[Rfam]
A member of the RNA family "Iron response element II" from Picathartes gymnocephalus, 31 nucleotides long.
RNA sequence: AGUUUUUCUGCAACAGUGCUUGCAAAAGACA
Numbered sequence: 001a002g003u004u005u006u007u008c009u010g011c012a013a014c015a016g017u018g019c020u021u022g023c024a025a026a027a028g029a030c031a
Stems, first nucleotide, its partner, number of pairs: 002030006009024005014018001

Overview
The organism belongs to Picathartes, within Eukaryota. It scores 33 bits against the family's covariance model. Pairs were carried over by alignment from the consensus structure, which is taken from published work. By type it is a cis-regulatory element. The family has 30 seed sequences and 5,197 matches in Rfam 15.1. Rfam describes the family as follows. IRE, TFRC, SLC40A1, SDHB, SLC11A2, CDC42BPA, ACO2, ALAS2_H.SAPIENS, CDC14A, EPAS1, ALAS2, qoxD, Hao1, NDUFS1, transferrin, Aconitate. On this family, see Koeller et al., Proc Natl Acad Sci U S A 1989: "A cytosolic protein binds to structural elements within the iron regulatory region of the transferrin receptor mRNA".